[Rfam]
RNA sequence: AUCGUAACAAGGCAAACCUGGCUGAAAAGCAGGGACGCAAAGUCACAGGUCUAAGGUUCGCACUAUGACGGCUGGACUGCCGAC
Number, nucleotide and partner (000 for none) at each position: 001a000002u000003c000004g000005u000006a000007a000008c000009a000010a000011g000012g038013c037014a000015a000016a000017c033018c032019u031020g030021g000022c029023u028024g000025a000026a000027a000028a023029g022030c020031a019032g018033g017034g000035a000036c000037g013038c012039a000040a000041a078042g077043u076044c075045a000046c074047a073048g072049g069050u068051c067052u000053a000054a000055g000056g063057u062058u000059c000060g000061c000062a057063c056064u000065a000066u000067g051068a050069c049070g000071g000072c048073u047074g046075g044076a043077c042078u041079g000080c000081c000082g000083a000084c000
The family of this 84-nucleotide RNA from Paenalicyclobacillus mengziensis is "c-di-GMP-I riboswitch aptamer". Rfam's curators write: GEMM was predicted in a large-scale screen for bacterial structured RNA regulatory elements. Genes associated with GEMM are involved in a diverse array of functions, including chemotaxis regulation, signal transduction, secretion and chitin. Lineage of the source: Bacteria > Bacillati > Bacilli > Caryophanales > Paenalicyclobacillus. The family's consensus secondary structure is taken from published work.